[Rfam]
Nucleotides: 080
Stems, first nucleotide, its partner, number of pairs: 012067002015064004023056010
Number, partner (000 for none) and nucleotide at each position: 001000c002000u003000c004000c005000a006000u007000g008000a009000c010000a011000a012067c013066c014000g015064u016063g017062g018061c019000u020000u021000u022000a023056g024055a025054u026053u027052g028051u029050u030049a031048c032047u033000g034000u035000g036000g037000u038000u039000u040000g041000u042000g043000u044000g045000u046000u047032g048031g049030u050029a051028a052027c053026a054025g055024u056023c057000u058000a059000c060000a061018g062017c063016c064015a065000u066013g067012g068000u069000u070000g071000u072000u073000u074000g075000g076000g077000c078000u079000g080000g

Source information: Shown here is an 80-nucleotide RNA sequence from Sphenodon punctatus, a member of the family "mir-132 microRNA precursor family". Pairs were carried over by alignment from the consensus structure, which was predicted with RNAalifold. Rfam links the family to the GO terms miRNA-mediated post-transcriptional gene silencing and RISC complex.